RNA sequence: AGUCGUCUAAGCGACUCUAAAAAGGCUUUAAGCUUAGAGCGUUCGCCCAUAUUGGGCGAGGUUGUA
Numbered sequence: 001a002g003u004c005g006u007c008u009a010a011g012c013g014a015c016u017c018u019a020a021a022a023a024g025g026c027u028u029u030a031a032g033c034u035u036a037g038a039g040c041g042u043u044c045g046c047c048c049a050u051a052u053u054g055g056g057c058g059a060g061g062u063u064g065u066a
Base pairs, nucleotide, nucleotide: 001016002015003014004013006038007037008036009035010034011033025065026064032040042060043059044058045057046056047055048054
The family of this 66-nucleotide sequence is "Pistol ribozyme".
Its family is annotated with catalytic activity in the Gene Ontology.